The family of this 72-nucleotide RNA sequence from Pseudomonas sp. MRSN 12121 is "Pseudomonas sRNA P10". The family's consensus secondary structure was predicted with WAR. By type it is a small RNA.
[Rfam]
RNA sequence: UGUCACCGACCCAACGGCCUGUCCUCUGCCGGGUCAUGGCACCAACCCCAUCGUCAGUGGUUCUCCCGACGU
Numbered sequence: 001u002g003u004c005a006c007c008g009a010c011c012c013a014a015c016g017g018c019c020u021g022u023c024c025u026c027u028g029c030c031g032g033g034u035c036a037u038g039g040c041a042c043c044a045a046c047c048c049c050a051u052c053g054u055c056a057g058u059g060g061u062u063c064u065c066c067c068g069a070c071g072u
Base pairs, nucleotide, nucleotide: 007071008070017040018039019038020036021035023033024032025031051069052068053067056064
Dot-bracket structure: ......((........(((((.(((.....))).)).)))..........(((..(.......)..))))).